[Rfam]
Nucleotides: 057
Base pairs, nucleotide, nucleotide: 031054032053033052034051036049037048038045039044
Number, partner (000 for none) and nucleotide at each position: 001000a002000a003000g004000a005000u006000u007000u008000g009000c010000u011000c012000u013000u014000u015000u016000u017000g018000u019000a020000u021000u022000u023000g024000u025000c026000u027000a028000g029000u030000a031054g032053g033052g034051u035000g036049c037048u038045u039044u040000a041000a042000g043000u044039a045038a046000u047000c048037a049036g050000g051034a052033c053032c054031c055000c056000a057000u